[Rfam]
RNA sequence: GAAGCGAGCCAGACCGCCGCUGGUGCAUGUCCCGAAAGGGCGCACUGGAGGAAGGUCCGGACUGCGCAGGGCGGCGUAGCAGCCAACGGCUGUCCACCGCAAGGUGAGGAUCAGAGCAACAGAGACGAGCCGAUUCAGUUCGGGUGAAACGGGCAAUCUCUACGCGCAGCAAUACCAAGUAGGCACACGUUGACCUGGCCCGGGGAGUGUGCGGGUAGGUAGCACCGAGCCAUCGCAGCGAUGCAUGGCCCAGAGGAAUGGCGGUCACGCCCUCGGCCCCGCAAGGGAUCGAGGGCGCACAGAAUCCGGCCUAUCGGCUCGCUUCACAU
Numbered sequence: 001g002a003a004g005c006g007a008g009c010c011a012g013a014c015c016g017c018c019g020c021u022g023g024u025g026c027a028u029g030u031c032c033c034g035a036a037a038g039g040g041c042g043c044a045c046u047g048g049a050g051g052a053a054g055g056u057c058c059g060g061a062c063u064g065c066g067c068a069g070g071g072c073g074g075c076g077u078a079g080c081a082g083c084c085a086a087c088g089g090c091u092g093u094c095c096a097c098c099g100c101a102a103g104g105u106g107a108g109g110a111u112c113a114g115a116g117c118a119a120c121a122g123a124g125a126c127g128a129g130c131c132g133a134u135u136c137a138g139u140u141c142g143g144g145u146g147a148a149a150c151g152g153g154c155a156a157u158c159u160c161u162a163c164g165c166g167c168a169g170c171a172a173u174a175c176c177a178a179g180u181a182g183g184c185a186c187a188c189g190u191u192g193a194c195c196u197g198g199c200c201c202g203g204g205g206a207g208u209g210u211g212c213g214g215g216u217a218g219g220u221a222g223c224a225c226c227g228a229g230c231c232a233u234c235g236c237a238g239c240g241a242u243g244c245a246u247g248g249c250c251c252a253g254a255g256g257a258a259u260g261g262c263g264g265u266c267a268c269g270c271c272c273u274c275g276g277c278c279c280c281g282c283a284a285g286g287g288a289u290c291g292a293g294g295g296c297g298c299a300c301a302g303a304a305u306c307c308g309g310c311c312u313a314u315c316g317g318c319u320c321g322c323u324u325c326a327c328a329u
Stems, first nucleotide, its partner, number of pairs: 001325010011314001012266007020048007028040001053312003057309005062169004069201004074165005079093005094108001095106004109160002114158002116154002130143004173221004183212006194204003229249005235244003
RNA: Bacterial RNase P class A
Organism: Rhizobacter terrae